[Rfam]
RNA sequence: CUCGCUAUUGAUUGUCCAAACGCAAUUCUUGUGCUUUUUCAAUUCAGGCCCCGAGAAUUGUGGAUGGACAUCCGUAGCUGG
Numbered sequence: 001c002u003c004g005c006u007a008u009u010g011a012u013u014g015u016c017c018a019a020a021c022g023c024a025a026u027u028c029u030u031g032u033g034c035u036u037u038u039u040c041a042a043u044u045c046a047g048g049c050c051c052c053g054a055g056a057a058u059u060g061u062g063g064a065u066g067g068a069c070a071u072c073c074g075u076a077g078c079u080g081g
Base pairs, nucleotide, nucleotide: 002080004078005077006076007075010072011071012070014069015068016067017066018065021062022061023060024059025058026057027056028055029054030053031052
This 81-nucleotide RNA from Chiloscyllium punctatum belongs to the Rfam family "mir-219 microRNA precursor family". The organism belongs to Chiloscyllium, within Eukaryota. The literature on the family includes a 2003 paper in Science by Lim et al., "Vertebrate microRNA genes". The base pairs follow the family's consensus structure, which was predicted with RNAalifold.